[Rfam]
RNA sequence: UUGUGCUAAGUGGGGAGCUAGCGGUGCCCUGUACCCGAAAUCCGCUUAUGCGGGACUGAAUUCUCUCUUUAGGAUUUAAUUUGAAAUCAUCAGACACUUAGAUCGGUCGCCGCGCAACAGACGGUCGCGAACCUCGUCAGGUCCGGAAGGAAGCAGCGAUAAGCGAUUCAGACUGUGUCGCGGAUCGAUCCCGAUCAAACAGUGAAUGGUGGUUGCAAAGCAAUUUCGACAGAGAGUGCACAA
Numbered sequence: 001u002u003g004u005g006c007u008a009a010g011u012g013g014g015g016a017g018c019u020a021g022c023g024g025u026g027c028c029c030u031g032u033a034c035c036c037g038a039a040a041u042c043c044g045c046u047u048a049u050g051c052g053g054g055a056c057u058g059a060a061u062u063c064u065c066u067c068u069u070u071a072g073g074a075u076u077u078a079a080u081u082u083g084a085a086a087u088c089a090u091c092a093g094a095c096a097c098u099u100a101g102a103u104c105g106g107u108c109g110c111c112g113c114g115c116a117a118c119a120g121a122c123g124g125u126c127g128c129g130a131a132c133c134u135c136g137u138c139a140g141g142u143c144c145g146g147a148a149g150g151a152a153g154c155a156g157c158g159a160u161a162a163g164c165g166a167u168u169c170a171g172a173c174u175g176u177g178u179c180g181c182g183g184a185u186c187g188a189u190c191c192c193g194a195u196c197a198a199a200c201a202g203u204g205a206a207u208g209g210u211g212g213u214u215g216c217a218a219a220g221c222a223a224u225u226u227c228g229a230c231a232g233a234g235a236g237u238g239c240a241c242a243a
Stems, first nucleotide, its partner, number of pairs: 001243006009057003012030004017025003034054004039049001063236006072227003076223001080219004085214003091208002095204004101196006110183005115177002118175003122171001123168006134159004142151003
Dot-bracket structure: ((((((..(((((((.(((...))).))))...((((.(.........).))))))).....((((((...(((.(...((((.(((...((..((((..((((((...(((((((.(((.(((((((.....((((....(((....)))....))))...))))))..).))))).))))).......))))))....))))..))...))).))))...).)))...)))))).))))))
Shown here is a 243-nucleotide sequence from Candidatus Magnetomorum sp. HK-1, a member of the family "Bacterial large signal recognition particle RNA". Its family is annotated with signal recognition particle, plasma membrane targeting and SRP-dependent cotranslational protein targeting to membrane, signal sequence recognition in the Gene Ontology. The literature on the family includes a 2009 paper in RNA Biol by Rosenblad et al., "Kinship in the SRP RNA family". The family is grouped with related families in Rfam's "SRP clan".